RNA sequence: GGAUAUGAGGGUAAUCUGGCUGUGAGACCUGAUAUGCCAUUGUUUGCAUGGGUUGAUCUGACUGAUCUGGUUAGCUUAGGUCCUUUCUUCCUUGACAUUCCAUGUGUGUUCCUCCUGAUGGCUGUGUGCUUAGUUAAUGAGGGCAGACUCCCCAGUAGACAUGGUAUUGAUUGUUCAUUAGUCAAGGGUGUGUGGUAGCUGUACUCCCCUGCUGGAAGCUCUAAGUAAGCUCAAAGUCUAUUUGUAGAUGAACGGAGGGUAGUCAAGCAUCCAGUACUGAAGACACAUCCUAAUGCAAAACUGCAUGUUACAGUCUGCUGGUG
Numbered sequence: 001g002g003a004u005a006u007g008a009g010g011g012u013a014a015u016c017u018g019g020c021u022g023u024g025a026g027a028c029c030u031g032a033u034a035u036g037c038c039a040u041u042g043u044u045u046g047c048a049u050g051g052g053u054u055g056a057u058c059u060g061a062c063u064g065a066u067c068u069g070g071u072u073a074g075c076u077u078a079g080g081u082c083c084u085u086u087c088u089u090c091c092u093u094g095a096c097a098u099u100c101c102a103u104g105u106g107u108g109u110u111c112c113u114c115c116u117g118a119u120g121g122c123u124g125u126g127u128g129c130u131u132a133g134u135u136a137a138u139g140a141g142g143g144c145a146g147a148c149u150c151c152c153c154a155g156u157a158g159a160c161a162u163g164g165u166a167u168u169g170a171u172u173g174u175u176c177a178u179u180a181g182u183c184a185a186g187g188g189u190g191u192g193u194g195g196u197a198g199c200u201g202u203a204c205u206c207c208c209c210u211g212c213u214g215g216a217a218g219c220u221c222u223a224a225g226u227a228a229g230c231u232c233a234a235a236g237u238c239u240a241u242u243u244g245u246a247g248a249u250g251a252a253c254g255g256a257g258g259g260u261a262g263u264c265a266a267g268c269a270u271c272c273a274g275u276a277c278u279g280a281a282g283a284c285a286c287a288u289c290c291u292a293a294u295g296c297a298a299a300a301c302u303g304c305a306u307g308u309u310a311c312a313g314u315c316u317g318c319u320g321g322u323g
Stems, first nucleotide, its partner, number of pairs: 001101003006094006013086002018083002027081004035074001037070003042067001044065002046062001109164002113159002115133004121129002134155002141152003198268003204262002207259004212254001219250001222247001225245005291323002295318002300314004
A member of the RNA family "7SK RNA" from Certhia brachydactyla, 323 nucleotides long. Lineage of the source: Eukaryota > Chordata > Passeriformes > Certhiidae > Certhia. The family's RNA type in Rfam is non-coding RNA gene. Its Rfam clan is "7SK clan". A search with the family's covariance model found it, with a score of 147 bits. The base pairs follow the family's consensus structure, which is taken from published work.